Metazoan signal recognition particle RNA: a 386-nucleotide RNA sequence from Rynchops niger.
Taxonomically the source falls in Rynchops (Eukaryota, Bilateria, Dipnotetrapodomorpha, Theropoda).
Rfam links the family to the GO terms SRP-dependent cotranslational protein targeting to membrane, signal sequence recognition and signal recognition particle, endoplasmic reticulum targeting.
About the family: The signal recognition particle (SRP) is a universally conserved ribonucleoprotein. It is involved in the co-translational targeting of proteins to membranes. The eukaryotic SRP consists of a 300-nucleotide 7S RNA and six proteins: SRPs 72, 68, 54, 19, 14, and 9. Archaeal SRP consists of a 7S RNA and homologues of the eukaryotic SRP19 and SRP54 proteins.
Pairs were carried over by alignment from the consensus structure, which is taken from published work.
The family is grouped with related families in Rfam's "SRP clan".
RNA sequence: GCCGGGCGUAGUGGCGCACGCCUGUAAUCCUAGUACGUUGGGAGGCUGAGUCUGCCGGAUCGGUGGAUCUGCGGUUCUAGACUGUAGUCAGCCGCAUAAGCGGGUGUCCGUGUUACGCCCGGCAUCACGGCGGCAGGAGGCGCCUUCGGUCGAGAGAAGGGCAAGCCGCGGGAGGUGCUAAGGGGUGGCCGGGCAGACCCCCGAUGCGGAGUAGGUUUAAUUAAAAGAGGGGGUGUGUGUGUAGAAUUUGGUCCCCCACGGUAUUUACGAUUACUCCAGACGCAGUCGGAGAGGGUCGCGGCGCCCGUGCCGGCCGGUGGCAGGAUAGCGCCUGCUAGUGGCGGCUGCAGUCUCAGGCCGGGUAACCCACCGAGACGCGGGCUCCC
Numbered sequence: 001g002c003c004g005g006g007c008g009u010a011g012u013g014g015c016g017c018a019c020g021c022c023u024g025u026a027a028u029c030c031u032a033g034u035a036c037g038u039u040g041g042g043a044g045g046c047u048g049a050g051u052c053u054g055c056c057g058g059a060u061c062g063g064u065g066g067a068u069c070u071g072c073g074g075u076u077c078u079a080g081a082c083u084g085u086a087g088u089c090a091g092c093c094g095c096a097u098a099a100g101c102g103g104g105u106g107u108c109c110g111u112g113u114u115a116c117g118c119c120c121g122g123c124a125u126c127a128c129g130g131c132g133g134c135a136g137g138a139g140g141c142g143c144c145u146u147c148g149g150u151c152g153a154g155a156g157a158a159g160g161g162c163a164a165g166c167c168g169c170g171g172g173a174g175g176u177g178c179u180a181a182g183g184g185g186u187g188g189c190c191g192g193g194c195a196g197a198c199c200c201c202c203g204a205u206g207c208g209g210a211g212u213a214g215g216u217u218u219a220a221u222u223a224a225a226a227g228a229g230g231g232g233g234u235g236u237g238u239g240u241g242u243a244g245a246a247u248u249u250g251g252u253c254c255c256c257c258a259c260g261g262u263a264u265u266u267a268c269g270a271u272u273a274c275u276c277c278a279g280a281c282g283c284a285g286u287c288g289g290a291g292a293g294g295g296u297c298g299c300g301g302c303g304c305c306c307g308u309g310c311c312g313g314c315c316g317g318u319g320g321c322a323g324g325a326u327a328g329c330g331c332c333u334g335c336u337a338g339u340g341g342c343g344g345c346u347g348c349a350g351u352c353u354c355a356g357g358c359c360g361g362g363u364a365a366c367c368c369a370c371c372g373a374g375a376c377g378c379g380g381g382c383u384c385c386c
Base pairs, nucleotide, nucleotide: 001046002045003044004023005022006021007020008019009018028043029042030041048384049383050382051381052380053379054378055377060373061372062371063370064369065368068361069360071358072357077356078355079353080352081351082350083349084348085347086346087345088344089343091342092341093340094339095338096336100335101334102333103332104331105330106329107328108324109323111322112321113320114319115318116316117315119313120312121311122310123309124308125307126132139305140304141303142302143301144300147298148297149296150295151294